[Rfam]
RNA sequence: AGCCCAAACUUGAAGCAGAGUAGAUCAGUAUGAUCAGCUGACCAUACACAACUAUUCUACCUCAAGUUUGUGCCC
Numbered sequence: 001a002g003c004c005c006a007a008a009c010u011u012g013a014a015g016c017a018g019a020g021u022a023g024a025u026c027a028g029u030a031u032g033a034u035c036a037g038c039u040g041a042c043c044a045u046a047c048a049c050a051a052c053u054a055u056u057c058u059a060c061c062u063c064a065a066g067u068u069u070g071u072g073c074c075c
Base pairs, nucleotide, nucleotide: 002073003072005070006069007068008067009066011064012063013062015060017058018057019056020055021054022053023052025050028047029046030045032043034041035040
Dot-bracket structure: .((.(((((.(((.(.(((((((.(..(((.(.((....)).).)))..).))))))).).))).))))).))..
Rfam assigns this 75-nucleotide sequence from Haemonchus placei to the family "mir-5928 microRNA precursor family". The base pairs follow the family's consensus structure, which was predicted with RNAalifold.